[Rfam]
RNA sequence: CGAUGGCAGGAGCGGGGGAACCGCAUUGGUCCCGGGAAACCGAGACCUUGGGGUGAAGCACCGGAAACGGUGCCGGGCUAUCUCCAGUCCGAAUCCGACAGCUCACCCCGGCGGCAUCCAGGAGAGGUACU
Numbered sequence: 001c002g003a004u005g006g007c008a009g010g011a012g013c014g015g016g017g018g019a020a021c022c023g024c025a026u027u028g029g030u031c032c033c034g035g036g037a038a039a040c041c042g043a044g045a046c047c048u049u050g051g052g053g054u055g056a057a058g059c060a061c062c063g064g065a066a067a068c069g070g071u072g073c074c075g076g077g078c079u080a081u082c083u084c085c086a087g088u089c090c091g092a093a094u095c096c097g098a099c100a101g102c103u104c105a106c107c108c109c110g111g112c113g114g115c116a117u118c119c120a121g122g123a124g125a126g127g128u129a130c131u
Stems, first nucleotide, its partner, number of pairs: 001009001013110005022050002051096003059072004075090004
RNA: c-di-AMP riboswitch aptamer (ydaO/yuaA leader)
Organism: Buchananella hordeovulneris